[Rfam]
The family of this 333-nucleotide RNA from Acinonyx jubatus is "TrkB IRES".
Rfam describes the family as follows. This family represents the TrkB internal ribosome entry site (IRES) which is present in the 5' leader sequence of the mRNA. TrkB is a neurotrophin receptor which is essential for the development and maintenance of the nervous system. The IRES element allows cap-independent translation of TrkB which may be needed for efficient translation in neuronal dendrites.
The family's RNA type in Rfam is internal ribosome entry site.
It scores 230 bits against the family's covariance model.
The family has 16 seed sequences and 130 matches in Rfam 15.1.
RNA sequence: UUCCAGUGCGCGUCUAGCAAGAAGCCUGCGUCCCGGGGAGUGCCGGCAGCGCCGCCGGCCGGUGCUCGGCGCGCCGGGCCAUGCAGCGGCGGCCGCCGCGGAGCUCCGAGCGGCGGUAGCGCCCCCUGUGAGGCGGCCAGAGAUGCCCCGGCCACUGUGAACGGUGCCGCCCGCCAGGACACGCUCAGCCCCGGCCACUGUAGGCUCUGCGCGCCCGCUACAGACACCGGGGCGAGGGAGCGGCGAGCGCGGCACAGGCCGCCCAGCAGGGGCAGGGGAAGCCGGCCGGUGCAGCGCGGGGACACGUACUCAGUGUGACUCGGGCUGGCACUG
Numbered sequence: 001u002u003c004c005a006g007u008g009c010g011c012g013u014c015u016a017g018c019a020a021g022a023a024g025c026c027u028g029c030g031u032c033c034c035g036g037g038g039a040g041u042g043c044c045g046g047c048a049g050c051g052c053c054g055c056c057g058g059c060c061g062g063u064g065c066u067c068g069g070c071g072c073g074c075c076g077g078g079c080c081a082u083g084c085a086g087c088g089g090c091g092g093c094c095g096c097c098g099c100g101g102a103g104c105u106c107c108g109a110g111c112g113g114c115g116g117u118a119g120c121g122c123c124c125c126c127u128g129u130g131a132g133g134c135g136g137c138c139a140g141a142g143a144u145g146c147c148c149c150g151g152c153c154a155c156u157g158u159g160a161a162c163g164g165u166g167c168c169g170c171c172c173g174c175c176a177g178g179a180c181a182c183g184c185u186c187a188g189c190c191c192c193g194g195c196c197a198c199u200g201u202a203g204g205c206u207c208u209g210c211g212c213g214c215c216c217g218c219u220a221c222a223g224a225c226a227c228c229g230g231g232g233c234g235a236g237g238g239a240g241c242g243g244c245g246a247g248c249g250c251g252g253c254a255c256a257g258g259c260c261g262c263c264c265a266g267c268a269g270g271g272g273c274a275g276g277g278g279a280a281g282c283c284g285g286c287c288g289g290u291g292c293a294g295c296g297c298g299g300g301g302a303c304a305c306g307u308a309c310u311c312a313g314u315g316u317g318a319c320u321c322g323g324g325c326u327g328g329c330a331c332u333g
Base pairs, nucleotide, nucleotide: 001278002277003276004275006273007272009270021043023041025037026036027035028034045264046263049260051259052258053257057111060108061107062106065101066100067098068097069096070095071094073093074092075091076090078087079086113158114157115156116155117154119153121152122151123150128146129145130144134140163253165251166250167249169248170247172245173244174243177241182238184236185235186234188233189232190231192200193199194198206230207229209227213225281329282328283327284326285325286324287323289321291319293316298311299310300309